The family of this 102-nucleotide RNA from Sporosarcina sp. Te-1 is "Purine riboswitch aptamer".
Pairs were carried over by alignment from the consensus structure, which is taken from published work.
RNA sequence: AAAAACUGCAUAUGGUGUUUUCAUAUAAUAGUGGGGAUAUGGCCUGUGAGUUUCUACCUGUUCACCGUAAAUGAACGGACUAUGAAAAGCUAAAGACUGGAA
Numbered sequence: 001a002a003a004a005a006c007u008g009c010a011u012a013u014g015g016u017g018u019u020u021u022c023a024u025a026u027a028a029u030a031g032u033g034g035g036g037a038u039a040u041g042g043c044c045u046g047u048g049a050g051u052u053u054c055u056a057c058c059u060g061u062u063c064a065c066c067g068u069a070a071a072u073g074a075a076c077g078g079a080c081u082a083u084g085a086a087a088a089g090c091u092a093a094a095g096a097c098u099g100g101a102a
Stems, first nucleotide, its partner, number of pairs: 018088008029049001031047005058078007
Dot-bracket structure: .................((((((((...(.(((((.......))))).)........(((((((.......)))))))..))))))))..............